[Rfam]
RNA: Tetrahymena snoRNA TtnuHACA17
RNA sequence: CAACUACAAAAUUUUCUUAUCAAAUAAUUUUGAUCAAAGCCAGUGGAUAAAGCAUCUCAGAUGGUUUUUUAUUCUUUUCUCUAUAUGAGAUUGCGAAUUAUACGCCCAUCUUACAACU
Numbered sequence: 001c002a003a004c005u006a007c008a009a010a011a012u013u014u015u016c017u018u019a020u021c022a023a024a025u026a027a028u029u030u031u032g033a034u035c036a037a038a039g040c041c042a043g044u045g046g047a048u049a050a051a052g053c054a055u056c057u058c059a060g061a062u063g064g065u066u067u068u069u070u071a072u073u074c075u076u077u078u079c080u081c082u083a084u085a086u087g088a089g090a091u092u093g094c095g096a097a098u099u100a101u102a103c104g105c106c107c108a109u110c111u112u113a114c115a116a117c118u
Stems, first nucleotide, its partner, number of pairs: 004046004012038003019034006059111006071098004078090004